Rfam assigns this 114-nucleotide RNA sequence from Candidatus Poribacteria bacterium WGA-4E to the family "Poribacteria-1 RNA". Taxonomically the source falls in Candidatus Poribacteria (Bacteria, Bacteria candidate phyla).
RNA sequence: GUUGCCGGACGAAAGGGGGUGAGCGGUCCCGGCAACGGGGCGGGCGUAAAUGCUUUCACACAGAAUGGUAUCCGUCAAACUAAGCAGCCAUUCAUAUCUAACCGACUAGGGGGA
Numbered sequence: 001g002u003u004g005c006c007g008g009a010c011g012a013a014a015g016g017g018g019g020u021g022a023g024c025g026g027u028c029c030c031g032g033c034a035a036c037g038g039g040g041c042g043g044g045c046g047u048a049a050a051u052g053c054u055u056u057c058a059c060a061c062a063g064a065a066u067g068g069u070a071u072c073c074g075u076c077a078a079a080c081u082a083a084g085c086a087g088c089c090a091u092u093c094a095u096a097u098c099u100a101a102c103c104g105a106c107u108a109g110g111g112g113g114a
Stems, first nucleotide, its partner, number of pairs: 001036008039076006063093006